[Rfam]
RNA sequence: GCCCUCUUCAACGCUGCGUUUCCAUGCUACAAACGGAGAAAGCCCUGUGAAAACAGGUCUUUCUCGACACUCUUCGCAUGUGGGAAAUUCGGAGAAAGCUUCAAAGCAGGAGGGAAACAUCCGUGUUUACCCUCCUGUGCUCGACUUUCACGCCGCUUUCUCUCUUCUCUCUUGACAGGGAGAUUGCGCCGUGAUUGUUCGAGUCCGCCUGUGAUGGCCUGGCGUCACCCCGACGUCUGCAACAGACAUCAGAAAUCUUUCAGGCCCGGGAGGGGGGAGAGAAGCCCUCGUGGUUUUUCUCUUCCUUUGGUCCCGGUGUCCUCUGGGAAGUCGUUGCGAAGCUUGUUGCGCAAAACUUGAGUGCGAUAUGCAGCGUUCGUCUUGCUUCGGCGAGACGGAUCACACAAUUCCGAUCAUUCUGUUGAGGGC
Numbered sequence: 001g002c003c004c005u006c007u008u009c010a011a012c013g014c015u016g017c018g019u020u021u022c023c024a025u026g027c028u029a030c031a032a033a034c035g036g037a038g039a040a041a042g043c044c045c046u047g048u049g050a051a052a053a054c055a056g057g058u059c060u061u062u063c064u065c066g067a068c069a070c071u072c073u074u075c076g077c078a079u080g081u082g083g084g085a086a087a088u089u090c091g092g093a094g095a096a097a098g099c100u101u102c103a104a105a106g107c108a109g110g111a112g113g114g115a116a117a118c119a120u121c122c123g124u125g126u127u128u129a130c131c132c133u134c135c136u137g138u139g140c141u142c143g144a145c146u147u148u149c150a151c152g153c154c155g156c157u158u159u160c161u162c163u164c165u166u167c168u169c170u171c172u173u174g175a176c177a178g179g180g181a182g183a184u185u186g187c188g189c190c191g192u193g194a195u196u197g198u199u200c201g202a203g204u205c206c207g208c209c210u211g212u213g214a215u216g217g218c219c220u221g222g223c224g225u226c227a228c229c230c231c232g233a234c235g236u237c238u239g240c241a242a243c244a245g246a247c248a249u250c251a252g253a254a255a256u257c258u259u260u261c262a263g264g265c266c267c268g269g270g271a272g273g274g275g276g277g278a279g280a281g282a283a284g285c286c287c288u289c290g291u292g293g294u295u296u297u298u299c300u301c302u303u304c305c306u307u308u309g310g311u312c313c314c315g316g317u318g319u320c321c322u323c324u325g326g327g328a329a330g331u332c333g334u335u336g337c338g339a340a341g342c343u344u345g346u347u348g349c350g351c352a353a354a355a356c357u358u359g360a361g362u363g364c365g366a367u368a369u370g371c372a373g374c375g376u377u378c379g380u381c382u383u384g385c386u387u388c389g390g391c392g393a394g395a396c397g398g399a400u401c402a403c404a405c406a407a408u409u410c411c412g413a414u415c416a417u418u419c420u421g422u423u424g425a426g427g428g429c
Base pairs, nucleotide, nucleotide: 001429002428003427004426009421010420013374014373015372016371017370018369019368023080024079025078026077036065037064038063039062040061041060090412091411092410093409094408099341100340101339102338207218208217209216221236225232239337240336241335242334243333245331262322263321264320375400376399377398378397379396380395381394382393383392384391
This 429-nucleotide RNA sequence from Trichoderma longibrachiatum belongs to the Rfam family "Nuclear RNase P". Ribonuclease P (RNase P) is a ubiquitous endoribonuclease, found in archaea, bacteria and eukarya as well as chloroplasts and mitochondria. The match comes from Rfam's covariance-model search (59 bits). The organism belongs to Trichoderma longibrachiatum, within Eukaryota. The family's RNA type in Rfam is ribozyme.